Description:
Shown here is a 78-nucleotide RNA from Camarhynchus parvulus, a member of the family "mir-27 microRNA precursor family". Gene Ontology terms of the family: miRNA-mediated post-transcriptional gene silencing and RISC complex. The base pairs follow the family's consensus structure, which was predicted with RNAalifold. For this family Rfam cites "The developmental miRNA profiles of zebrafish as determined by small RNA cloning" (Chen et al., Genes Dev, 2005).
RNA sequence: UGGGGGGGCAGGGCUUAGCCCACCUGUGAACAGAGUCCAGCAGCGCCGUGUUCACAGUGGCUAAGUUCCGCCCCCGCC
Numbered sequence: 001u002g003g004g005g006g007g008g009c010a011g012g013g014c015u016u017a018g019c020c021c022a023c024c025u026g027u028g029a030a031c032a033g034a035g036u037c038c039a040g041c042a043g044c045g046c047c048g049u050g051u052u053c054a055c056a057g058u059g060g061c062u063a064a065g066u067u068c069c070g071c072c073c074c075c076g077c078c
Base pairs, nucleotide, nucleotide: 011068012067013066014065015064016063017062018061019060020059026055027054028053029052030051031050032049